The family of this 96-nucleotide RNA sequence from Streptococcus thermophilus is "Purine riboswitch aptamer". About the family: Riboswitches are metabolite binding domains within certain messenger RNAs that serve as precision sensors for their corresponding targets. The sequence is in the family's curated seed alignment.
RNA sequence: UCAAACAAUGAGAACAUUACUUAUUUAUGUCACGAAUGGGCGUGACGUUUCUACAAGGUGCCGUAACACCUAACAAUAAGUAAGCUAAUUUAGUCA
Numbered sequence: 001u002c003a004a005a006c007a008a009u010g011a012g013a014a015c016a017u018u019a020c021u022u023a024u025u026u027a028u029g030u031c032a033c034g035a036a037u038g039g040g041c042g043u044g045a046c047g048u049u050u051c052u053a054c055a056a057g058g059u060g061c062c063g064u065a066a067c068a069c070c071u072a073a074c075a076a077u078a079a080g081u082a083a084g085c086u087a088a089u090u091u092a093g094u095c096a
Stems, first nucleotide, its partner, number of pairs: 018082008029046006056071005